MIR5148 microRNA precursor family: a 78-nucleotide RNA from Oryza nivara. It scores 94 bits against the family's covariance model.
[Rfam]
RNA sequence: CACGAUAUGACGUUUCUACCCCUCACAAGUACAAGCAUAAUGCAUAUCAAUGAGGGGUAGAAAUGUCAUAUCGUGUCU
Numbered sequence: 001c002a003c004g005a006u007a008u009g010a011c012g013u014u015u016c017u018a019c020c021c022c023u024c025a026c027a028a029g030u031a032c033a034a035g036c037a038u039a040a041u042g043c044a045u046a047u048c049a050a051u052g053a054g055g056g057g058u059a060g061a062a063a064u065g066u067c068a069u070a071u072c073g074u075g076u077c078u
Stems, first nucleotide, its partner, number of pairs: 004072012017059009029048001031047001033045001
Gene Ontology terms of the family: RISC complex and miRNA-mediated post-transcriptional gene silencing.